[Rfam]
The record is a 114-nucleotide RNA, which matches "Potassium channel RNA editing signal" in Rfam. Rfam's curators write: This family represents a group of sequences related to the human potassium channel Kv1.1 hairpin element which directs the efficient modification of an adenosine to inosine by an adenosine deaminase acting on RNA (ADAR). The ADAR modification causes an isoleucine/valine recoding event which lies in the ion-conducting pore of the potassium channel. It is thought that this editing event targets the process of fast inactivation and allows a more rapid recovery from inactivation at negative potentials. The family's consensus secondary structure is taken from published work.
RNA sequence: GUGGGCUAUGGUGACAUGUACCCUGUGACAAUUGGAGGCAAAAUCGUGGGCUCCUUGUGUGCCAUCGCUGGUGUGCUGACAAUUGCCCUGCCUGUACCUGUCAUCGUGUCCAAC
Numbered sequence: 001g002u003g004g005g006c007u008a009u010g011g012u013g014a015c016a017u018g019u020a021c022c023c024u025g026u027g028a029c030a031a032u033u034g035g036a037g038g039c040a041a042a043a044u045c046g047u048g049g050g051c052u053c054c055u056u057g058u059g060u061g062c063c064a065u066c067g068c069u070g071g072u073g074u075g076c077u078g079a080c081a082a083u084u085g086c087c088c089u090g091c092c093u094g095u096a097c098c099u100g101u102c103a104u105c106g107u108g109u110c111c112a113a114c
Stems, first nucleotide, its partner, number of pairs: 001114002004111002007108005013102004018097004037077004049063003
It is one of the family's seed sequences. It is annotated as a cis-regulatory element. Rfam 15.1 lists 14,095 matches to the family in 1,000 species.